A member of the RNA family "Nitrogen stress-induced RNA 1" from Leptolyngbyaceae cyanobacterium M65_K2018_010, 62 nucleotides long. The literature on the family includes a 2010 paper in J Mol Biol by Ionescu et al., "Heterocyst-specific transcription of NsiR1, a non-coding RNA encoded in a tandem array of direct repeats in cyanobacteria".

RNA sequence: AGGUAGAUGCACCCUGAUUGUCAAGCCCUGGGAUACCUGGAGGGAUCCUGGGGCUUUUCUUU
Numbered sequence: 001a002g003g004u005a006g007a008u009g010c011a012c013c014c015u016g017a018u019u020g021u022c023a024a025g026c027c028c029u030g031g032g033a034u035a036c037c038u039g040g041a042g043g044g045a046u047c048c049u050g051g052g053g054c055u056u057u058u059c060u061u062u
Base pairs, nucleotide, nucleotide: 002013003012004011025054026053027052028051029050030049031048032047033046034045

Description: Pairs were carried over by alignment from the consensus structure. It scores 52 bits against the family's covariance model.